[Rfam]
RNA: Purine riboswitch aptamer
RNA sequence: UUAAAUUAUGGAAAAGUAUCCCGUAUAUUUUCGGUAAUAUGGUCCGACAGUUUCUACGAAGCCGCCGUAAAUGGCUUUGCUACGGGUGUUCAUCUUAGACAU
Numbered sequence: 001u002u003a004a005a006u007u008a009u010g011g012a013a014a015a016g017u018a019u020c021c022c023g024u025a026u027a028u029u030u031u032c033g034g035u036a037a038u039a040u041g042g043u044c045c046g047a048c049a050g051u052u053u054c055u056a057c058g059a060a061g062c063c064g065c066c067g068u069a070a071a072u073g074g075c076u077u078u079g080c081u082a083c084g085g086g087u088g089u090u091c092a093u094c095u096u097a098g099a100c101a102u
Stems, first nucleotide, its partner, number of pairs: 020086006029049001031047004058078007